[Rfam]
RNA sequence: UUCUUAUCAAGAGAGGUAGAGGGACUGGCCCUGUGAAACCUCAGCAACAGAUUUUUUUAGAAAUACUGUGCUAAUUCCAGAAGCGUAAAGCUUGAAGAUAAGAA
Numbered sequence: 001u002u003c004u005u006a007u008c009a010a011g012a013g014a015g016g017u018a019g020a021g022g023g024a025c026u027g028g029c030c031c032u033g034u035g036a037a038a039c040c041u042c043a044g045c046a047a048c049a050g051a052u053u054u055u056u057u058u059a060g061a062a063a064u065a066c067u068g069u070g071c072u073a074a075u076u077c078c079a080g081a082a083g084c085g086u087a088a089a090g091c092u093u094g095a096a097g098a099u100a101a102g103a104a
Base pairs, nucleotide, nucleotide: 001104002103003102004101005100006099007098008097013042014041015040016039017038021031022030023029025080026079027078028077043072044071045070046069048068049067050064052062053061076096081093082092083091084090
Source information
This 104-nucleotide RNA sequence from Virgibacillus indicus belongs to the Rfam family "SAM riboswitch aptamer (S box leader)". The source organism's lineage runs through Bacteria, Bacillati, Bacillota, Caryophanales and Virgibacillus. The base pairs follow the family's consensus structure, which is taken from published work. From the family's description: The SAM riboswitch is found upstream of a number of genes which code for proteins involved in methionine or cysteine biosynthesis in Gram-positive bacteria. The SAM riboswitch acts at the level of transcription termination control.